[Rfam]
RNA sequence: CCCAUCCCAAGUUCUGCGAUACACUUAGACUGAGUCUGAGGCAGUCAGUGUAUAACAGAAUUUUGGUAGGGG
Numbered sequence: 001c002c003c004a005u006c007c008c009a010a011g012u013u014c015u016g017c018g019a020u021a022c023a024c025u026u027a028g029a030c031u032g033a034g035u036c037u038g039a040g041g042c043a044g045u046c047a048g049u050g051u052a053u054a055a056c057a058g059a060a061u062u063u064u065g066g067u068a069g070g071g072g
Stems, first nucleotide, its partner, number of pairs: 006066002009063008022050004028046004
A member of the RNA family "mir-148/mir-152 microRNA precursor family" from Salmo trutta, 72 nucleotides long. Taxonomically the source falls in Salmo (Eukaryota, Euteleostomi, Protacanthopterygii, Salmonidae). The family's consensus secondary structure was predicted with RNAalifold.